[Rfam]
RNA sequence: AUACCGCCGGUGAUCGGUUCAUAUCACCACCUCCCUGUUGGACUUGCCCGGGCUCUAUGCCCGGGUUUUUUU
Numbered sequence: 001a002u003a004c005c006g007c008c009g010g011u012g013a014u015c016g017g018u019u020c021a022u023a024u025c026a027c028c029a030c031c032u033c034c035c036u037g038u039u040g041g042a043c044u045u046g047c048c049c050g051g052g053c054u055c056u057a058u059g060c061c062c063g064g065g066u067u068u069u070u071u072u
Stems, first nucleotide, its partner, number of pairs: 009028006046066008

Rfam assigns this 72-nucleotide RNA from Yoonia tamlensis to the family "Singlet oxygen resistance RNA X".
Pairs were carried over by alignment from the consensus structure.
SorX (RSs2461)like SorY is a singlet oxygen induced sRNA that counteracts oxidative stress by targeting mRNA for a transporter in Rhodobacter. It also has an impact on resistance against organic hydroperoxides. It targets SD sequence of potA mRNA via an aSD sequence. The aSD sequence and some neighbouring nucleotides are identical to the one of SorY (targets takP mRNA).
The family's RNA type in Rfam is small RNA.
NCBI's taxonomy places the organism under Bacteria, Pseudomonadota, Alphaproteobacteria, Paracoccaceae, Yoonia.